[Rfam]
Small nucleolar RNA SNORA57: a 145-nucleotide sequence from Pongo abelii. NCBI's taxonomy places the organism under Eukaryota, Vertebrata, Gnathostomata, Hominoidea, Pongo. The match comes from Rfam's covariance-model search (83 bits). Rfam describes the family as follows. U99 belongs to the H/ACA class of snoRNAs which are thought to guide the sites of modification of uridines to pseudouridines, the target for this family is unknown.
RNA sequence: CCUCCUUUUCUUGUCAGGGACUGAGUGUGUGGUCCUGCUCUUGUUAUGUAUGGAGGCAGAGGGAAAGGGCUCCCGCCCCCUCAAAAUCAUGUCUUUGGUGCCAGCCGGUUCUCAGUCGCCUGGAUACUGAACUUCUCUGAGCAGG
Numbered sequence: 001c002c003u004c005c006u007u008u009u010c011u012u013g014u015c016a017g018g019g020a021c022u023g024a025g026u027g028u029g030u031g032g033u034c035c036u037g038c039u040c041u042u043g044u045u046a047u048g049u050a051u052g053g054a055g056g057c058a059g060a061g062g063g064a065a066a067g068g069g070c071u072c073c074c075g076c077c078c079c080c081u082c083a084a085a086a087u088c089a090u091g092u093c094u095u096u097g098g099u100g101c102c103a104g105c106c107g108g109u110u111c112u113c114a115g116u117c118g119c120c121u122g123g124a125u126a127c128u129g130a131a132c133u134u135c136u137c138u139g140a141g142c143a144g145g
Base pairs, nucleotide, nucleotide: 001056002055003054004053005052015043016042017041018040019039022037023036025034083136085134086133101123102122103121104120106118107117